[Rfam]
RNA sequence: GGAAGUGUAUUCUGUGAUUGUUCUGUACAUUGAUCGAUAUUCAGGUAACUGCAUCUGCUUAUCAGAUCUGUUCAGAGCCGACCCUCCGUCACACCUUUGUGUUUCCCAGUAAUUCUGCCUGGCGUUGCCGUGGCUCCUCGUUCGGAUCGGCUUUCCGCUGCCUUCCGCUGGAUGACGACGGGUUAUCCGGCGGUCGACGCACGGUCAUGCACCCCCGAUCCGUCGCCCCCUCCACCCCGCGGAUUCCGGUCUCGACCGGUAGCCGUAUUGGGCGGGGACGGGCGGCGGUCCGGUGCUGAAGCCGGCGACAGUUGCCCGAGUCAGCCACUUUCAAAAUUUGUUGGUUAAGUAACUUAGUAGCUUAGCUUCGGAUUUUCGUAACAAAUUUGCUGUUCAGAACACUUCCAUGUACGCGGCAUUGCCGAGCAAUUUGCCCAUUCUUUUG
Numbered sequence: 001g002g003a004a005g006u007g008u009a010u011u012c013u014g015u016g017a018u019u020g021u022u023c024u025g026u027a028c029a030u031u032g033a034u035c036g037a038u039a040u041u042c043a044g045g046u047a048a049c050u051g052c053a054u055c056u057g058c059u060u061a062u063c064a065g066a067u068c069u070g071u072u073c074a075g076a077g078c079c080g081a082c083c084c085u086c087c088g089u090c091a092c093a094c095c096u097u098u099g100u101g102u103u104u105c106c107c108a109g110u111a112a113u114u115c116u117g118c119c120u121g122g123c124g125u126u127g128c129c130g131u132g133g134c135u136c137c138u139c140g141u142u143c144g145g146a147u148c149g150g151c152u153u154u155c156c157g158c159u160g161c162c163u164u165c166c167g168c169u170g171g172a173u174g175a176c177g178a179c180g181g182g183u184u185a186u187c188c189g190g191c192g193g194u195c196g197a198c199g200c201a202c203g204g205u206c207a208u209g210c211a212c213c214c215c216c217g218a219u220c221c222g223u224c225g226c227c228c229c230c231u232c233c234a235c236c237c238c239g240c241g242g243a244u245u246c247c248g249g250u251c252u253c254g255a256c257c258g259g260u261a262g263c264c265g266u267a268u269u270g271g272g273c274g275g276g277g278a279c280g281g282g283c284g285g286c287g288g289u290c291c292g293g294u295g296c297u298g299a300a301g302c303c304g305g306c307g308a309c310a311g312u313u314g315c316c317c318g319a320g321u322c323a324g325c326c327a328c329u330u331u332c333a334a335a336a337u338u339u340g341u342u343g344g345u346u347a348a349g350u351a352a353c354u355u356a357g358u359a360g361c362u363u364a365g366c367u368u369c370g371g372a373u374u375u376u377c378g379u380a381a382c383a384a385a386u387u388u389g390c391u392g393u394u395c396a397g398a399a400c401a402c403u404u405c406c407a408u409g410u411a412c413g414c415g416g417c418a419u420u421g422c423c424g425a426g427c428a429a430u431u432u433g434c435c436c437a438u439u440c441u442u443u444u445g
Stems, first nucleotide, its partner, number of pairs: 001406008014092005023075003027071003032068004036063004042057004415435003418430005